[Rfam]
RNA: Plastid-psbN 5UTR RNA
Organism: Lathyrus oleraceus
RNA sequence: UGCAAUCCCCAUCAAAGGGGUAGUUCCCCACCUCCGAGCUACUUUACCAUAUUCUGAAUUU
Numbered sequence: 001u002g003c004a005a006u007c008c009c010c011a012u013c014a015a016a017g018g019g020g021u022a023g024u025u026c027c028c029c030a031c032c033u034c035c036g037a038g039c040u041a042c043u044u045u046a047c048c049a050u051a052u053u054c055u056g057a058a059u060u061u
Stems, first nucleotide, its partner, number of pairs: 017045010